[Rfam]
The record is a 296-nucleotide RNA sequence from Nannizzia gypsea, which matches "Fungal signal recognition particle RNA" in Rfam. Its family is annotated with SRP-dependent cotranslational protein targeting to membrane, signal sequence recognition, signal recognition particle, plasma membrane targeting and signal recognition particle, endoplasmic reticulum targeting in the Gene Ontology. A reference for the family is Rosenblad et al. (2003), "SRPDB: Signal Recognition Particle Database", Nucleic Acids Res. By type it is a non-coding RNA gene.

RNA sequence: UAGCUGUAAUGGCCGAAGGGAAACUGUCGCGCCCUCAACUUGCGCCCCGAACCACUUCACGUGACCACGACCUUGACGCCUGGUUCGAAUCCUCGAGUCGCCACCUUUUAUUCCUCGGGGUAAAAGGUUCUCCCGCACUCGUGCUGAGUAAUCCACGAAUGGCUGCGGCGCUGCUAAGACAUGGAAGAGACGCUUGAGGGAAGCAAUUCUGCAGAGGCCUUCCACUCGGGGAUGGCGGCACCAGAUCACGUCGGCGUGCGGGUCGCAGGGAGGACAUUUGACAGUUGACUUUUUUU
Numbered sequence: 001u002a003g004c005u006g007u008a009a010u011g012g013c014c015g016a017a018g019g020g021a022a023a024c025u026g027u028c029g030c031g032c033c034c035u036c037a038a039c040u041u042g043c044g045c046c047c048c049g050a051a052c053c054a055c056u057u058c059a060c061g062u063g064a065c066c067a068c069g070a071c072c073u074u075g076a077c078g079c080c081u082g083g084u085u086c087g088a089a090u091c092c093u094c095g096a097g098u099c100g101c102c103a104c105c106u107u108u109u110a111u112u113c114c115u116c117g118g119g120g121u122a123a124a125a126g127g128u129u130c131u132c133c134c135g136c137a138c139u140c141g142u143g144c145u146g147a148g149u150a151a152u153c154c155a156c157g158a159a160u161g162g163c164u165g166c167g168g169c170g171c172u173g174c175u176a177a178g179a180c181a182u183g184g185a186a187g188a189g190a191c192g193c194u195u196g197a198g199g200g201a202a203g204c205a206a207u208u209c210u211g212c213a214g215a216g217g218c219c220u221u222c223c224a225c226u227c228g229g230g231g232a233u234g235g236c237g238g239c240a241c242c243a244g245a246u247c248a249c250g251u252c253g254g255c256g257u258g259c260g261g262g263u264c265g266c267a268g269g270g271a272g273g274a275c276a277u278u279u280g281a282c283a284g285u286u287g288a289c290u291u292u293u294u295u296u
Stems, first nucleotide, its partner, number of pairs: 001015001003013002016293005023285007031275001033273003039269006046262004057064002070257002073254006080244005085238003089233009130170001132168002136161002139158005146153002174178001182224006193216003200209003